[Rfam]
RNA sequence: GGCACUGUUCGCGGGAGCCCGAUCCGGGCUGAGAGGGCCGAGUGCCGACCGCUGCACCUGAUGCGGUUAAUGCCGCCGGAGGAAGGAACAUCGUGGCGAACG
Numbered sequence: 001g002g003c004a005c006u007g008u009u010c011g012c013g014g015g016a017g018c019c020c021g022a023u024c025c026g027g028g029c030u031g032a033g034a035g036g037g038c039c040g041a042g043u044g045c046c047g048a049c050c051g052c053u054g055c056a057c058c059u060g061a062u063g064c065g066g067u068u069a070a071u072g073c074c075g076c077c078g079g080a081g082g083a084a085g086g087a088a089c090a091u092c093g094u095g096g097c098g099a100a101c102g
Base pairs, nucleotide, nucleotide: 006090007089008088009087010086011052012051013050014049017029018028019027020026021025036046037045038044057082058081059080063076064075065074066073
RNA: TPP riboswitch aptamer (THI element)